[Rfam]
RNA sequence: GGAGGGGUACGAGCUCCUGGUGGACUCCCCGGUCUUCAAAACCGGUGAGGCCGAGCAUCUCGGCCUGGCGGGUUCGAUUCCCGUCCCCCUCC
Numbered sequence: 001g002g003a004g005g006g007g008u009a010c011g012a013g014c015u016c017c018u019g020g021u022g023g024a025c026u027c028c029c030c031g032g033u034c035u036u037c038a039a040a041a042c043c044g045g046u047g048a049g050g051c052c053g054a055g056c057a058u059c060u061c062g063g064c065c066u067g068g069c070g071g072g073u074u075c076g077a078u079u080c081c082c083g084u085c086c087c088c089c090u091c092c
Stems, first nucleotide, its partner, number of pairs: 001092007009084001011027003015024003029045005048066005069083004
Dot-bracket structure: (((((((.(.(((.(((....)))))).(((((.......)))))..(((((.........)))))..((((.......))))).)))))))
RNA: Selenocysteine transfer RNA